[Rfam]
RNA: Glycine riboswitch aptamer
Organism: Paenibacillus xylanivorans
Nucleotides: 124
Base pairs, nucleotide, nucleotide: 005120006119007118008117009116012114013113020053021052022051023050055105056104057103058101059100062099063098064097068092069091070090071089072088073087
Number, partner (000 for none) and nucleotide at each position: 001000u002000g003000a004000u005120a006119g007118c008117g009116a010000g011000c012114g013113g014000g015000a016000g017000a018000g019000a020053c021052c022051u023050g024000g025000g026000c027000a028000u029000g030000c031000c032000g033000a034000g035000u036000a037000a038000a039000a040000a041000g042000g043000c044000a045000g046000c047000u048000g049000u050023c051022g052021g053020g054000c055105a056104c057103c058101g059100a060000a061000g062099g063098a064097g065000c066000a067000a068092g069091c070090u071089g072088c073087u074000a075000c076000g077000c078000a079000c080000c081000c082000g083000g084000c085000g086000c087073a088072g089071c090070g091069g092068u093000u094000a095000a096000u097064c098063u099062c100059u101058c102000a103057g104056g105055u106000a107000a108000a109000u110000g111000u112000a113013c114012c115000a116009u117008c118007g119006u120005u121000g122000g123000a124000c